The family of this 86-nucleotide sequence from Helianthus annuus is "Small nucleolar RNA SNORD25".

[Rfam]
RNA sequence: UUGGGCGGUGAUGAGCCAAUACAGACCUGUAAUGAUUUGCGAGAAUGAUCGCAACUCUUUAUGAACAUCUAAGGGACUGAGCCUUA
Numbered sequence: 001u002u003g004g005g006c007g008g009u010g011a012u013g014a015g016c017c018a019a020u021a022c023a024g025a026c027c028u029g030u031a032a033u034g035a036u037u038u039g040c041g042a043g044a045a046u047g048a049u050c051g052c053a054a055c056u057c058u059u060u061a062u063g064a065a066c067a068u069c070u071a072a073g074g075g076a077c078u079g080a081g082c083c084u085u086a
Base pairs, nucleotide, nucleotide: 003084004083005082006081
The family's RNA type in Rfam is C/D-box small nucleolar RNA. The source organism's lineage runs through Eukaryota, Embryophyta, asterids, Asteraceae and Helianthus. The match comes from Rfam's covariance-model search (62 bits). Rfam 15.1 lists 985 matches to the family in 241 species.